[Rfam]
RNA sequence: CCGACGGCCCAAUGAGGGGGUCGGCUUACCGAGGUGGCGGAUUUCCCCCGCUUCCUUCCAUGUUGCUUUACGGAGGAUAUGGUUAUGAGAA
Numbered sequence: 001c002c003g004a005c006g007g008c009c010c011a012a013u014g015a016g017g018g019g020g021u022c023g024g025c026u027u028a029c030c031g032a033g034g035u036g037g038c039g040g041a042u043u044u045c046c047c048c049c050g051c052u053u054c055c056u057u058c059c060a061u062g063u064u065g066c067u068u069u070a071c072g073g074a075g076g077a078u079a080u081g082g083u084u085a086u087g088a089g090a091a
Base pairs, nucleotide, nucleotide: 001024002023003022004021005020008018009017031054032053033052034051035050036049037048039046040045055089056088057087058082059081060080061079062078063077064076066075067074068073
Background
The family of this 91-nucleotide RNA sequence from Neorhizobium alkalisoli is "Repression of heat shock gene expression (ROSE) element". Rfam 15.1 lists 381 matches to the family in 262 species. Rfam links the family to the GO terms regulation of translation and response to temperature stimulus. The source organism's lineage runs through Bacteria, Pseudomonadati, Hyphomicrobiales, Rhizobiaceae and Neorhizobium. On this family, see Nocker et al., Nucleic Acids Res 2001: "A mRNA-based thermosensor controls expression of rhizobial heat shock genes". Rfam describes the family as follows. This family represents a 5' UTR cis-regulatory element found in heat shock mRNAs and is known as the ROSE (repression of heat shock gene expression) element. The ROSE element is a negative regulator of heat shock gene expression. The secondary structure is thought to be regulated by temperature. This regulation blocks access to the ribosome binding site under normal conditions. During heat shock however, the structure changes freeing the ribosome binding site and allowing expression to occur.